[Rfam]
RNA sequence: AUUUAGCCCUGAUGGAAGUGAAAAUCCUUUAUAUGUCAUACAGGUUUUUAGAACCUGUAUGACAUAUAAAGAUUGUAACGUACAGCAGGAAAAUGG
Numbered sequence: 001a002u003u004u005a006g007c008c009c010u011g012a013u014g015g016a017a018g019u020g021a022a023a024a025u026c027c028u029u030u031a032u033a034u035g036u037c038a039u040a041c042a043g044g045u046u047u048u049u050a051g052a053a054c055c056u057g058u059a060u061g062a063c064a065u066a067u068a069a070a071g072a073u074u075g076u077a078a079c080g081u082a083c084a085g086c087a088g089g090a091a092a093a094u095g096g
Stems, first nucleotide, its partner, number of pairs: 009088003013084002018079002023074004029069018
Flavo-1 RNA: a 96-nucleotide sequence from Flavobacterium psychrophilum. The family's RNA type in Rfam is small RNA. It is one of the family's seed sequences.